[Rfam]
RNA: MIR2593 microRNA precursor family
Organism: Medicago truncatula
RNA sequence: UUGUAAGAAAAUUUUGUCUUUUUAGAUUCAUUCAAUUAAUGAUGUAUGUGGUUCAUAUUAUGGGUCACAUACAUCAUUAAUUGAAUGAAUCUAAAAAGUCAAAAUUUGUUUAUAA
Number, nucleotide and partner (000 for none) at each position: 001u000002u114003g113004u112005a111006a110007g109008a000009a107010a106011a105012u104013u103014u000015u101016g100017u000018c098019u097020u096021u095022u094023u093024a092025g091026a000027u089028u088029c087030a086031u085032u084033c083034a082035a081036u080037u079038a078039a077040u076041g075042a074043u073044g072045u000046a000047u000048g000049u067050g066051g065052u064053u000054c000055a000056u000057a000058u000059u000060a000061u000062g000063g000064g052065u051066c050067a049068c000069a000070u000071a000072c044073a043074u042075c041076a040077u039078u038079a037080a036081u035082u034083g033084a032085a031086u030087g029088a028089a027090u000091c025092u024093a023094a022095a021096a020097a019098g018099u000100c016101a015102a000103a013104a012105u011106u010107u009108g000109u007110u006111u005112a004113u003114a002115a000